[Rfam]
RNA sequence: GCUUGUUCGUCUACCCUGUGGUACCGAGCUGUGUCUGAGUGAUAAGCAAACACGAUCGGUCACUGGGUAAAGGACCUUGCUC
Numbered sequence: 001g002c003u004u005g006u007u008c009g010u011c012u013a014c015c016c017u018g019u020g021g022u023a024c025c026g027a028g029c030u031g032u033g034u035c036u037g038a039g040u041g042a043u044a045a046g047c048a049a050a051c052a053c054g055a056u057c058g059g060u061c062a063c064u065g066g067g068u069a070a071a072g073g074a075c076c077u078u079g080c081u082c
Stems, first nucleotide, its partner, number of pairs: 012069004018063004024059002028057001030055001032054003036050001039047002
RNA: mir-57 microRNA precursor family